[Rfam]
RNA: Small nucleolar RNA snoR8a
RNA sequence: UCGAGCGCAAUGAUUAUACCACAAGAAUCACCUCUGAACGCCCUUUCGGGGGCUUGACAGACACCAAUACACCCAUAGAAUCUGAGCGCUC
Numbered sequence: 001u002c003g004a005g006c007g008c009a010a011u012g013a014u015u016a017u018a019c020c021a022c023a024a025g026a027a028u029c030a031c032c033u034c035u036g037a038a039c040g041c042c043c044u045u046u047c048g049g050g051g052g053c054u055u056g057a058c059a060g061a062c063a064c065c066a067a068u069a070c071a072c073c074c075a076u077a078g079a080a081u082c083u084g085a086g087c088g089c090u091c
Stems, first nucleotide, its partner, number of pairs: 003091002006088002